A member of the RNA family "let-7 microRNA precursor family" from Microcaecilia unicolor, 80 nucleotides long.
From the family's description: This family represents the microRNAs (miRNA) let-7 and mir-98. let-7 was identified from a study of developmental timing in C. elegans, and was later shown to be part of a much larger class of non-coding RNAs termed miRNAs.
The match comes from Rfam's covariance-model search (74 bits).
The family has 64 seed sequences and 8,694 matches in Rfam 15.1.
The literature on the family includes a 2001 paper in Nat Rev Genet by Rougvie, "Control of developmental timing in animals".
[Rfam]
RNA sequence: UUGGGGUGAGGUAGUAGGUUGUAUAGUUUUAGGGGUCCCCCUGGCUGUCAGAUAACUAUACAAUCUACUGUCUUUCCUGA
Numbered sequence: 001u002u003g004g005g006g007u008g009a010g011g012u013a014g015u016a017g018g019u020u021g022u023a024u025a026g027u028u029u030u031a032g033g034g035g036u037c038c039c040c041c042u043g044g045c046u047g048u049c050a051g052a053u054a055a056c057u058a059u060a061c062a063a064u065c066u067a068c069u070g071u072c073u074u075u076c077c078u079g080a
Base pairs, nucleotide, nucleotide: 001080002079003078004077005076006075008074009073010072011071012070013069014068015067016066017065018064019063020062021061022060023059024058025057026056027055032042033041034040035039